Source information:
Shown here is a 349-nucleotide RNA from Varibaculum cambriense, a member of the family "Bacterial RNase P class A". It scores 306 bits against the family's covariance model.

[Rfam]
RNA sequence: UCAGUCGGCCGGGCGGCCGCGGCUAGCGAUAGUCGAGGAAAGUCCGGGCUCCACAGGACAGGAUGAUGGCUAACAGCCACCCGGGGUGACCCGCGGGCUAGUGCCGCAGAAAAUAUACCGCCACGCCUCGCGUGGUAAGGGUGAAAAGGCGGUGUAAGAGACCACCAGUGGUCAAGGUGACUUGGCCAGCUAGGUAAACCCCAUCCGGAGCAAGACCAAGCAGCAAGUUGGGUGGUCCGCUUUUAACUUGCGGGUAGGUUGCUAAAGGCAUGCGGUAACGCAGGUCUCAGAUAGAUGGUCGCCGCUGGCUUAGCCAGUACAGAACCCGGCUUAUAGGCCGGCUGAUCUG
Numbered sequence: 001u002c003a004g005u006c007g008g009c010c011g012g013g014c015g016g017c018c019g020c021g022g023c024u025a026g027c028g029a030u031a032g033u034c035g036a037g038g039a040a041a042g043u044c045c046g047g048g049c050u051c052c053a054c055a056g057g058a059c060a061g062g063a064u065g066a067u068g069g070c071u072a073a074c075a076g077c078c079a080c081c082c083g084g085g086g087u088g089a090c091c092c093g094c095g096g097g098c099u100a101g102u103g104c105c106g107c108a109g110a111a112a113a114u115a116u117a118c119c120g121c122c123a124c125g126c127c128u129c130g131c132g133u134g135g136u137a138a139g140g141g142u143g144a145a146a147a148g149g150c151g152g153u154g155u156a157a158g159a160g161a162c163c164a165c166c167a168g169u170g171g172u173c174a175a176g177g178u179g180a181c182u183u184g185g186c187c188a189g190c191u192a193g194g195u196a197a198a199c200c201c202c203a204u205c206c207g208g209a210g211c212a213a214g215a216c217c218a219a220g221c222a223g224c225a226a227g228u229u230g231g232g233u234g235g236u237c238c239g240c241u242u243u244u245a246a247c248u249u250g251c252g253g254g255u256a257g258g259u260u261g262c263u264a265a266a267g268g269c270a271u272g273c274g275g276u277a278a279c280g281c282a283g284g285u286c287u288c289a290g291a292u293a294g295a296u297g298g299u300c301g302c303c304g305c306u307g308g309c310u311u312a313g314c315c316a317g318u319a320c321a322g323a324a325c326c327c328g329g330c331u332u333a334u335a336g337g338c339c340g341g342c343u344g345a346u347c348u349g
Stems, first nucleotide, its partner, number of pairs: 001345010011334001012303007020035006040332003044329005049210004057238001061206005067079004081095001082093004096201002101199002103195003118140002120136007148166002151163003168190001169188008214260004223251006230244003234240001267286003271282004
It is annotated as a ribozyme.